Rfam assigns this 129-nucleotide sequence from Lynx pardinus to the family "Small nucleolar RNA SNORA64/SNORA10 family". Rfam describes the family as follows. This family belongs to the H/ACA class of small nucleolar RNAs (snoRNAs) which act as guides in the the modification of uridines to pseudouridines. This family includes the human snoRNAs U64 and ACA10 and mouse MBI-29. The source organism's lineage runs through Eukaryota, Metazoa, Chordata, Teleostomi and Lynx. A reference for the family is Narayanan et al. (1999), "Nucleolar localization signals of box H/ACA small nucleolar RNAs", EMBO J. Rfam links the family to the GO terms RNA processing and nucleolus. The family's RNA type in Rfam is H/ACA-box small nucleolar RNA. Clan: SNORA64 clan.

RNA sequence: CCUCUUUCAGCUCUGCCCUAUCAUACUCAGUGUGUGGCUGGCGUAUUUUCAGAGAGAGAGGAAGGCCCUCCUAAUGCAUGAUAGACCGGACCCAAGUGGCCUCUCUCGGUUCCUAGGAGUGCAACAGUU
Numbered sequence: 001c002c003u004c005u006u007u008c009a010g011c012u013c014u015g016c017c018c019u020a021u022c023a024u025a026c027u028c029a030g031u032g033u034g035u036g037g038c039u040g041g042c043g044u045a046u047u048u049u050c051a052g053a054g055a056g057a058g059a060g061g062a063a064g065g066c067c068c069u070c071c072u073a074a075u076g077c078a079u080g081a082u083a084g085a086c087c088g089g090a091c092c093c094a095a096g097u098g099g100c101c102u103c104u105c106u107c108g109g110u111u112c113c114u115a116g117g118a119g120u121g122c123a124a125c126a127g128u129u
Base pairs, nucleotide, nucleotide: 002060003059004058005057008056011054012053013052014051015050021037022036023035024034025033026032068119069118070117071116072115074114076112083106084105085104088101089100091098